[Rfam]
RNA sequence: UUAGCUAUUUUAGAUAGGUUUGUAUUCAUAGCAUUGUGGAUACAAACAACCAAAGCGUUUGUAUCUAUGAUGGCUAGAGCGAUUAUUGUUGUAAAAAAGCCACAUGGAUAGACAAUCUAGAGUGGCUAAAUAUAUUUGCAUUUUUCAACGUUCACUUAAGAUUGUUUAUCAAUGACUUAA
Numbered sequence: 001u002u003a004g005c006u007a008u009u010u011u012a013g014a015u016a017g018g019u020u021u022g023u024a025u026u027c028a029u030a031g032c033a034u035u036g037u038g039g040a041u042a043c044a045a046a047c048a049a050c051c052a053a054a055g056c057g058u059u060u061g062u063a064u065c066u067a068u069g070a071u072g073g074c075u076a077g078a079g080c081g082a083u084u085a086u087u088g089u090u091g092u093a094a095a096a097a098a099g100c101c102a103c104a105u106g107g108a109u110a111g112a113c114a115a116u117c118u119a120g121a122g123u124g125g126c127u128a129a130a131u132a133u134a135u136u137u138g139c140a141u142u143u144u145u146c147a148a149c150g151u152u153c154a155c156u157u158a159a160g161a162u163u164g165u166u167u168a169u170c171a172a173u174g175a176c177u178u179a180a
Base pairs, nucleotide, nucleotide: 001077002076003075004074005073006072007071011067012066013065014064015063016062018047019046020045021044022043023042024041025040026039027038028037029036050061052059053058081146082145085142087140088139089138098127099126100125101124102123103122105119106118107117147166148165149164150163152161153160